[Rfam]
Shown here is a 116-nucleotide RNA sequence from Lupinus angustifolius, a member of the family "Small nucleolar RNA Z278". The base pairs follow the family's consensus structure, which was predicted with PFOLD. Rfam classes the family as a C/D-box small nucleolar RNA. Its family is annotated with nucleolus and RNA processing in the Gene Ontology. The literature on the family includes a 2003 paper in Nucleic Acids Res by Chen et al., "The high diversity of snoRNAs in plants: identification and comparative study of 120 snoRNA genes from Oryza sativa".
Nucleotides: 116
Stems, first nucleotide, its partner, number of pairs: 001116003049062005
Number, partner (000 for none) and nucleotide at each position: 001116g002115c003114c004000u005000g006000u007000g008000a009000u010000g011000a012000u013000u014000c015000a016000a017000u018000c019000c020000a021000a022000c023000u024000a025000g026000u027000u028000u029000g030000a031000g032000g033000u034000g035000u036000a037000g038000u039000a040000g041000a042000g043000c044000u045000a046000a047000g048000c049062c050061c051060a052059u053058g054000u055000u056000u057000a058053c059052a060051u061050g062049g063000a064000g065000a066000a067000c068000c069000u070000a071000c072000u073000u074000a075000g076000u077000g078000a079000a080000g081000c082000u083000g084000c085000a086000u087000u088000c089000a090000c091000a092000u093000g094000a095000u096000a097000u098000c099000a100000a101000u102000g103000g104000a105000u106000c107000c108000u109000u110000c111000u112000g113000a114003g115002g116001c